[Rfam]
RNA sequence: CUGCGGCCCGGUUCAAGUAAUCCAGGAUAGGCUGGUUCCUGCCAGCACGGCCUAUUCUUGAUUACUUGUUUCGGGAAGCAG
Number, nucleotide and partner (000 for none) at each position: 001c000002u080003g079004c078005g000006g000007c075008c074009c073010g072011g071012u000013u000014c068015a067016a066017g065018u064019a063020a062021u061022c060023c000024a058025g057026g056027a055028u054029a053030g052031g051032c050033u049034g000035g000036u000037u000038c000039c000040u000041g000042c000043c000044a000045g000046c000047a000048c000049g033050g032051c031052c030053u029054a028055u027056u026057c025058u024059u000060g022061a021062u020063u019064a018065c017066u016067u015068g014069u000070u000071u011072c010073g009074g008075g007076a000077a000078g004079c003080a002081g000
A member of the RNA family "mir-26 microRNA precursor family" from Scleropages formosus, 81 nucleotides long.
NCBI's taxonomy places the organism under Eukaryota, Metazoa, Deuterostomia, Osteoglossiformes, Scleropages.